The family of this 289-nucleotide RNA sequence from Hevea brasiliensis is "Plant signal recognition particle RNA".

RNA sequence: GCUGAGCUCAGUUGCGUGGGCUUGUGACCCAAGCGGGAGCAUUAAGGUAAUGGAACGUCGCUCUAGCCCAGAUAGCCGGAUUUGGUCUGGCUAAUUUCUUCCUUGCCCGCUCCAAGCUGGAGUUGAACUAUGGGUCCCAGGCGAAAGACUCCUGGUUCUUAGAGCAGAGGGUAAUGCGUGAGGCUGGCUUCACAGAGCACCUCUUGCUCCUGGCAGUGGAAGGAUAACAAGUCGGUGCCACCCGGGUUCGUAUGGCUUGAUGGGAUGUGCUAAUGGAACUAUCACUUUU
Numbered sequence: 001g002c003u004g005a006g007c008u009c010a011g012u013u014g015c016g017u018g019g020g021c022u023u024g025u026g027a028c029c030c031a032a033g034c035g036g037g038a039g040c041a042u043u044a045a046g047g048u049a050a051u052g053g054a055a056c057g058u059c060g061c062u063c064u065a066g067c068c069c070a071g072a073u074a075g076c077c078g079g080a081u082u083u084g085g086u087c088u089g090g091c092u093a094a095u096u097u098c099u100u101c102c103u104u105g106c107c108c109g110c111u112c113c114a115a116g117c118u119g120g121a122g123u124u125g126a127a128c129u130a131u132g133g134g135u136c137c138c139a140g141g142c143g144a145a146a147g148a149c150u151c152c153u154g155g156u157u158c159u160u161a162g163a164g165c166a167g168a169g170g171g172u173a174a175u176g177c178g179u180g181a182g183g184c185u186g187g188c189u190u191c192a193c194a195g196a197g198c199a200c201c202u203c204u205u206g207c208u209c210c211u212g213g214c215a216g217u218g219g220a221a222g223g224a225u226a227a228c229a230a231g232u233c234g235g236u237g238c239c240a241c242c243c244g245g246g247u248u249c250g251u252a253u254g255g256c257u258u259g260a261u262g263g264g265a266u267g268u269g270c271u272a273a274u275g276g277a278a279c280u281a282u283c284a285c286u287u288u289u
Stems, first nucleotide, its partner, number of pairs: 001040003004023007028037003044288005050282004056276001058273001060271001061269001063267001068263003074257004078249008088240003092237002098235002102231004107223002111220004116214003119210005125158006132151004142147001159164001166204005178198002184195003